Shown here is a 54-nucleotide RNA from Coregonus sp. 'balchen', a member of the family "UnaL2 LINE 3' element". Pairs were carried over by alignment from the consensus structure, which is taken from published work. The eel long interspersed element (LINE) UnaL2 and its partner short interspersed element (SINE) share a conserved 3' tail containing a stem-loop that is critical for their retrotransposition. Presumably, the first step of retrotransposition is the recognition of their 3' tails by UnaL2-encoded reverse transcriptase. By type it is a cis-regulatory element.
[Rfam]
RNA sequence: AAAAAAAAAAACUGUAAGUCGCUUUGGAUAAGAGUGUCUGCUAAAUGACUAAAA
Number, nucleotide and partner (000 for none) at each position: 001a000002a000003a000004a000005a000006a000007a000008a000009a000010a000011a000012c000013u043014g041015u040016a039017a000018g000019u000020c036021g035022c034023u033024u032025u031026g000027g000028a000029u000030a000031a025032g024033a023034g022035u021036g020037u000038c000039u016040g015041c014042u000043a013044a000045a000046u000047g000048a000049c000050u000051a000052a000053a000054a000